[Rfam]
Nucleotides: 060
Base pairs, nucleotide, nucleotide: 001054002053003052004051005050006049007048008047009046010045011044012043013042014041019036020035021034022033023032024031
Number, partner (000 for none) and nucleotide at each position: 001054a002053a003052a004051g005050g006049a007048g008047c009046a010045a011044u012043a013042g014041c015000c016000a017000a018000u019036u020035u021034c022033u023032u024031g025000u026000u027000a028000u029000a030000u031024c032023a033022a034021g035020a036019a037000g038000a039000u040000u041014g042013u043012u044011a045010u046009u047008g048007c049006u050005c051004c052003u053002u054001u055000a056000u057000u058000u059000a060000u